[Rfam]
RNA sequence: CGCUUAGUCCCGGACCUGCUCGGAGGCCCGGGAGCCGGGGAACCAACCCACCUGGGGUGAAUCACCCGCAAGGCGAUGGCACGGGGGCCGUCGAGGAGCGGGUGUAGGGCGAGUCGUGCCCGAACCCGUCAGCUCACCCGGUAGGCGUA
Numbered sequence: 001c002g003c004u005u006a007g008u009c010c011c012g013g014a015c016c017u018g019c020u021c022g023g024a025g026g027c028c029c030g031g032g033a034g035c036c037g038g039g040g041a042a043c044c045a046a047c048c049c050a051c052c053u054g055g056g057g058u059g060a061a062u063c064a065c066c067c068g069c070a071a072g073g074c075g076a077u078g079g080c081a082c083g084g085g086g087g088c089c090g091u092c093g094a095g096g097a098g099c100g101g102g103u104g105u106a107g108g109g110c111g112a113g114u115c116g117u118g119c120c121c122g123a124a125c126c127c128g129u130c131a132g133c134u135c136a137c138c139c140g141g142u143a144g145g146c147g148u149a
Base pairs, nucleotide, nucleotide: 001147002146003145004144008033009032010031011030012029013028034142035141036140037139038138039137044054045053055127056126057125063104064103065102066101067100068099069098107121108120109119110118
The family of this 149-nucleotide RNA sequence from Nocardioides panaciterrulae is "c-di-AMP riboswitch aptamer (ydaO/yuaA leader)". The source organism's lineage runs through Bacteria, Bacillati, Actinomycetes, Propionibacteriales and Nocardioides. A search with the family's covariance model found it, with a score of 58 bits. This family represents a conserved RNA structure found upstream of the ydaO and yuaA genes in Bacillus subtilis and related genes in other bacteria. The ydaO/yuaA element is thought to act as a genetic 'off' switch for the ydaO and yuaA genes in its native state. It is believed that the element may be triggered during osmotic shock leading to activation of ydaO, a predicted amino acid transporter gene, and members of the yuaA-yubG operon which code for KtrA and KtrB K+ transporters.